This 140-nucleotide sequence from Yersinia ruckeri belongs to the Rfam family "Yersinia sRNA 155(RyfD)".
The family's RNA type in Rfam is small RNA.
The literature on the family includes a 2015 paper in PLoS Genet by Nuss et al., "Transcriptomic profiling of Yersinia pseudotuberculosis reveals reprogramming of the Crp regulon by temperature and uncovers Crp as a master regulator of small RNAs".
About the family: The sRNA was identified by and is confirmed to have a stable secondary structure by using genome-wide structure probing at different temperatures.
The pairing is the family consensus, mapped onto this sequence.
A search with the family's covariance model found it, with a score of 122 bits.
Lineage of the source: Bacteria > Pseudomonadati > Pseudomonadota > Gammaproteobacteria > Yersinia.

RNA sequence: CAAGACGGUCCACUGACGCAUACCGCAAAACUCAAAUAUACUUGUUAAGACAACCUUGAAAACUUGAGGGGUGACCUCAUUUAAUCUCCAGUAGCAGUCUUGACAUGUAUUGGAGGUGUUAUGCGUUUGGAUCGUCUUAC
Number, nucleotide and partner (000 for none) at each position: 001c000002a138003a137004g136005a135006c134007g133008g132009u131010c130011c129012a128013c000014u000015g127016a126017c125018g124019c123020a122021u000022a120023c000024c118025g045026c044027a043028a042029a000030a000031c000032u000033c000034a000035a000036a000037u000038a000039u000040a000041c000042u028043u027044g026045u025046u000047a000048a000049g000050a000051c000052a000053a000054c069055c068056u067057u066058g065059a064060a000061a000062a000063c000064u059065u058066g057067a056068g055069g054070g081071g080072u079073g078074a000075c000076c000077u000078c073079a072080u071081u070082u000083a000084a117085u116086c115087u114088c113089c112090a111091g110092u109093a108094g000095c000096a000097g000098u000099c000100u000101u000102g000103a000104c000105a000106u000107g000108u093109a092110u091111u090112g089113g088114a087115g086116g085117u084118g024119u000120u022121a000122u020123g019124c018125g017126u016127u015128u012129g011130g010131a009132u008133c007134g006135u005136c004137u003138u002139a000140c000